This 300-nucleotide sequence from Hyphodiscus hymeniophilus belongs to the Rfam family "A. fumigatus sRNA Afu_309".

RNA sequence: AUCUUUUCAUAACAAACAGAUUUGUGCCCAGCGGUCCCUUCAGCCAAAAUUGCUUGCAGUGGCGGCUGUGAGGUUGACUACUGAGGCAGUUCGAUGUCUAUGGAGCCAUCAACCUUCACUGGUAAUUCACAUGGUGUCAAUCAUCCGAUCGACAGAUCUCAGAUAAAUCGGUCCUUACGAAGCCUGAGCUCGCCCAGGCUGAGCUCGGUGGACGAGUGAUCGAAGACAUGGCAUUCCACCUCCCUUUACCGAGACCGUUGGUUUUUGAGGAUGGGGAAAAACCGCCAUCUGCCUACAUUA
Numbered sequence: 001a002u003c004u005u006u007u008c009a010u011a012a013c014a015a016a017c018a019g020a021u022u023u024g025u026g027c028c029c030a031g032c033g034g035u036c037c038c039u040u041c042a043g044c045c046a047a048a049a050u051u052g053c054u055u056g057c058a059g060u061g062g063c064g065g066c067u068g069u070g071a072g073g074u075u076g077a078c079u080a081c082u083g084a085g086g087c088a089g090u091u092c093g094a095u096g097u098c099u100a101u102g103g104a105g106c107c108a109u110c111a112a113c114c115u116u117c118a119c120u121g122g123u124a125a126u127u128c129a130c131a132u133g134g135u136g137u138c139a140a141u142c143a144u145c146c147g148a149u150c151g152a153c154a155g156a157u158c159u160c161a162g163a164u165a166a167a168u169c170g171g172u173c174c175u176u177a178c179g180a181a182g183c184c185u186g187a188g189c190u191c192g193c194c195c196a197g198g199c200u201g202a203g204c205u206c207g208g209u210g211g212a213c214g215a216g217u218g219a220u221c222g223a224a225g226a227c228a229u230g231g232c233a234u235u236c237c238a239c240c241u242c243c244c245u246u247u248a249c250c251g252a253g254a255c256c257g258u259u260g261g262u263u264u265u266u267g268a269g270g271a272u273g274g275g276g277a278a279a280a281a282c283c284g285c286c287a288u289c290u291g292c293c294u295a296c297a298u299u300a
Stems, first nucleotide, its partner, number of pairs: 018159008026087003029083003033079004037073004042067004049060004095151002097148002101139003105135005171220003182209003186206006192199002225293001227291001228288005241277005249270002253263004
A search with the family's covariance model found it, with a score of 180 bits. On this family, see Jochl et al., Nucleic Acids Res 2008: "Small ncRNA transcriptome analysis from Aspergillus fumigatus suggests a novel mechanism for regulation of protein synthesis".